RNA sequence: GCAAGCUUGUAACCCGAGUGGGUGCUUUGAGGUGCUGGAACAUUGGCCCAAAAUUAACGGGUCGAGUUCAAGCUGGCUAUCUAUUGGCCUGCCCAUUUCAAGCCAGGAGUUGAACCCUGUGGCUUGAGCGAAAGCUCUGGGUCACUGGGUUUCCAGAGAUGAGGGAACCGCGUAAGACUGGCUUUACAAAGCAACGACUACCUCCCGCUCUUGGUAGUGGAAGGAUUACGAGUCAGUGCCACUUGGAUCCACCAUGGCCCGCUAAACUGACCCGAUUGAACCAAAACCUUU
Numbered sequence: 001g002c003a004a005g006c007u008u009g010u011a012a013c014c015c016g017a018g019u020g021g022g023u024g025c026u027u028u029g030a031g032g033u034g035c036u037g038g039a040a041c042a043u044u045g046g047c048c049c050a051a052a053a054u055u056a057a058c059g060g061g062u063c064g065a066g067u068u069c070a071a072g073c074u075g076g077c078u079a080u081c082u083a084u085u086g087g088c089c090u091g092c093c094c095a096u097u098u099c100a101a102g103c104c105a106g107g108a109g110u111u112g113a114a115c116c117c118u119g120u121g122g123c124u125u126g127a128g129c130g131a132a133a134g135c136u137c138u139g140g141g142u143c144a145c146u147g148g149g150u151u152u153c154c155a156g157a158g159a160u161g162a163g164g165g166a167a168c169c170g171c172g173u174a175a176g177a178c179u180g181g182c183u184u185u186a187c188a189a190a191g192c193a194a195c196g197a198c199u200a201c202c203u204c205c206c207g208c209u210c211u212u213g214g215u216a217g218u219g220g221a222a223g224g225a226u227u228a229c230g231a232g233u234c235a236g237u238g239c240c241a242c243u244u245g246g247a248u249c250c251a252c253c254a255u256g257g258c259c260c261g262c263u264a265a266a267c268u269g270a271c272c273c274g275a276u277u278g279a280a281c282c283a284a285a286a287c288c289u290u291u
Stems, first nucleotide, its partner, number of pairs: 013022003029290005036283003041278002043275003046271001048269001050268001054265003058261006064250001066248007074241003078238002084236005090230002093224002096222005102215009112152006119145008127136003153158001161204004171196003179188002

Plant signal recognition particle RNA: a 291-nucleotide RNA from Prunus yedoensis.
The family's consensus secondary structure is taken from published work.
The family has 63 seed sequences and 4,988 matches in Rfam 15.1.